[Rfam]
RNA: Plant small nucleolar RNA R71
RNA sequence: AUGUCAGAAUGACACUUUUUGGUCAGUUGCUUAUAUCUCUCCCAAGCUUCAUAGAGGGAUUCGCCAUCCUUCUGUCUGAAGGUUUGAACAUCCACUCUAAGCUU
Numbered sequence: 001a002u003g004u005c006a007g008a009a010u011g012a013c014a015c016u017u018u019u020u021g022g023u024c025a026g027u028u029g030c031u032u033a034u035a036u037c038u039c040u041c042c043c044a045a046g047c048u049u050c051a052u053a054g055a056g057g058g059a060u061u062c063g064c065c066a067u068c069c070u071u072c073u074g075u076c077u078g079a080a081g082g083u084u085u086g087a088a089c090a091u092c093c094a095c096u097c098u099a100a101g102c103u104u
Stems, first nucleotide, its partner, number of pairs: 001104001003102002006098001054071002057068001